The family of this 230-nucleotide sequence from Streptomyces tsukubensis is "Streptomyces sRNA 4677". The source organism's lineage runs through Bacteria, Bacillati, Kitasatosporales, Streptomycetaceae and Streptomyces. Rfam 15.1 lists 563 matches to the family in 285 species. The family's RNA type in Rfam is small RNA. Located in the intergenic region between anti-sigma factor SCO4677 gene and a putative regulatory protein gene SCO4676. scr4677 expression requires the SCO4677 activity and scr4677 sRNA itself seem to affect the levels of the SCO4676-associated transcripts.
RNA sequence: CGACCCGGUGGUGCGCGCUGCUCUUUAAAGCACUUGGGGAAAUUACCAACCACACCAAACCCGGCCUGACCGUCCGGGAAUUGGGGGACACUCAUUCGGGUGAUGGGGGCACAAAGGGGUCGGCCGGGUGGGGUACGGUCGCCGCAAUCAACCACAGACAGUGAACGGCCCUCGGCAGGACUGCGAAUCCUGACGAGGGCCUGACCAAGUAGGAAGAAGAGAGCUUCCCC
Number, nucleotide and partner (000 for none) at each position: 001c000002g000003a000004c000005c000006c000007g000008g000009u207010g206011g000012u000013g000014c000015g000016c000017g000018c000019u000020g000021c000022u000023c000024u000025u000026u000027a000028a000029a000030g000031c000032a000033c000034u000035u000036g000037g000038g000039g000040a000041a000042a000043u000044u000045a000046c000047c000048a000049a000050c000051c000052a000053c000054a000055c000056c000057a000058a000059a000060c000061c000062c000063g000064g000065c000066c000067u000068g000069a000070c000071c000072g000073u000074c000075c000076g000077g000078g000079a000080a000081u000082u000083g000084g000085g000086g000087g000088a000089c102090a101091c100092u099093c098094a000095u000096u000097c000098g093099g092100g091101u090102g089103a000104u000105g000106g143107g142108g000109g140110c000111a000112c000113a000114a000115a000116g000117g000118g000119g000120u000121c000122g000123g000124c000125c000126g000127g000128g000129u000130g000131g000132g000133g000134u000135a000136c000137g000138g000139u000140c109141g000142c107143c106144g000145c000146a000147a000148u000149c000150a000151a000152c000153c000154a000155c000156a000157g000158a000159c000160a000161g000162u000163g000164a000165a000166c000167g201168g200169c199170c198171c197172u000173c195174g194175g000176c000177a191178g190179g189180a188181c000182u000183g000184c000185g000186a000187a000188u180189c179190c178191u177192g000193a000194c174195g173196a000197g171198g170199g169200c168201c167202u000203g000204a000205c000206c010207a009208a000209g000210u000211a000212g228213g227214a226215a225216g224217a000218a000219g000220a000221g000222a000223g000224c216225u215226u214227c213228c212229c000230c000